TPP riboswitch aptamer (THI element): a 108-nucleotide sequence from Aminipila butyrica. The organism belongs to Aminipila, within Bacteria.
RNA sequence: UAAACAUGCUAGGGGUGCAAGGUCUUGACCGAGCUGAGAUUGCAUAUGCAGAACCCUUUGAACCUGAUGUGGCUAGUACCGCCGAUAGGAAAGCUUUUAACAUGCAAG
Numbered sequence: 001u002a003a004a005c006a007u008g009c010u011a012g013g014g015g016u017g018c019a020a021g022g023u024c025u026u027g028a029c030c031g032a033g034c035u036g037a038g039a040u041u042g043c044a045u046a047u048g049c050a051g052a053a054c055c056c057u058u059u060g061a062a063c064c065u066g067a068u069g070u071g072g073c074u075a076g077u078a079c080c081g082c083c084g085a086u087a088g089g090a091a092a093g094c095u096u097u098u099a100a101c102a103u104g105c106a107a108g
Base pairs, nucleotide, nucleotide: 006096008094009093010092011057012056013055014054016051017034018033021030041050042049043048063089064088065087066086069082070081071080072079